[Rfam]
RNA sequence: GCUCGAGGACGGCCUCGGGGACCUCCAUCUCGGCUCGAGGACGGCCUCA
Dot-bracket structure: .(((((((....))))))).................((((....)))).
RNA: Guanidine-II riboswitch aptamer (mini-ykkC)